[Rfam]
RNA sequence: AAAAAAAACCCCCUCAUCAUGAGGGGGAAGACAGGGAUGGUGUCUAUGGCAAGGAAAAACAGGGAUACUAUGUUA
Numbered sequence: 001a002a003a004a005a006a007a008a009c010c011c012c013c014u015c016a017u018c019a020u021g022a023g024g025g026g027g028a029a030g031a032c033a034g035g036g037a038u039g040g041u042g043u044c045u046a047u048g049g050c051a052a053g054g055a056a057a058a059a060c061a062g063g064g065a066u067a068c069u070a071u072g073u074u075a
Base pairs, nucleotide, nucleotide: 009027010026011025012024013023014022015021030074031073032072033071035069038067039066041065043063044062047059

Shown here is a 75-nucleotide RNA sequence from Winslowiella iniecta, a member of the family "Hfq-regulated sRNA 1".
On this family, see Zeng and Sundin, BMC Genomics 2014: "Genome-wide identification of Hfq-regulated small RNAs in the fire blight pathogen Erwinia amylovora discovered small RNAs with virulence regulatory function".
The match comes from Rfam's covariance-model search (63 bits).
Taxonomically the source falls in Winslowiella (Bacteria, Pseudomonadati, Pseudomonadota, Erwiniaceae).
The family's consensus secondary structure was predicted with RNAfold.